[Rfam]
RNA sequence: AGCGGGGUUAACAGGCUGAUCUUGUUCCGGCGGAAAUGUAAGUUCUAGUCAUUUCGGCGAUGAGAUCAGCCUGUCGAACUUGGU
Numbered sequence: 001a002g003c004g005g006g007g008u009u010a011a012c013a014g015g016c017u018g019a020u021c022u023u024g025u026u027c028c029g030g031c032g033g034a035a036a037u038g039u040a041a042g043u044u045c046u047a048g049u050c051a052u053u054u055c056g057g058c059g060a061u062g063a064g065a066u067c068a069g070c071c072u073g074u075c076g077a078a079c080u081u082g083g084u
Base pairs, nucleotide, nucleotide: 002084003083005081006080007079008078011074012073013072014071015070016069017068018067019066020065021064022063023062024061025060026059033055034054035053036052037051038050
RNA: mir-6012 microRNA precursor family